This 200-nucleotide sequence from Trinickia dabaoshanensis belongs to the Rfam family "Burkholderia sRNA 11".
It is annotated as a small RNA.
The base pairs follow the family's consensus structure, which was predicted with RNAfold.
On this family, see Sass et al., Sci Rep 2017: "Identification of small RNAs abundant in Burkholderia cenocepacia biofilms reveal putative regulators with a potential role in carbon and iron metabolism".
Rfam describes the family as follows. Identified by RNA-seq, RACE and Northern blot. Strongly expressed in biofilm. Identified in as ncRNA13. It is complimentary by 40 nucleotides with a gene encoding a regulatory protein (BCAL1948). ncS11 is strongly up-regulated in the stationary phase and biofilms, while BCAL1948 is down-regulated under these conditions.
[Rfam]
RNA sequence: UGCCUUUCGCGUUGGGGCGUCCAACGUGAAACCAGACGGAUGCUCUUAUAGCAAGCCGGAUAGGGCCGACAGCGUGGUCCGUGCGAGACACGGCGAUCGCAUGCGUUGCUCGAUAGCCAGUCCGAUGGCUGGGAGCCCGCCGCCCGAAGGCGCCGCGUGCGCAGCAAAAAGGCCCUCAUCGCCGAUGAGGGCCUUUUACU
Dot-bracket structure: ..(.((((((..(((.....)))..))))))...).(((.((((.....))))..)))....((((.....((((...(((((.....)))))..).)))..(((..((((..((((..........)))).)))).))).))))....((((.....))))....((((((((((((((...))))))))))))))...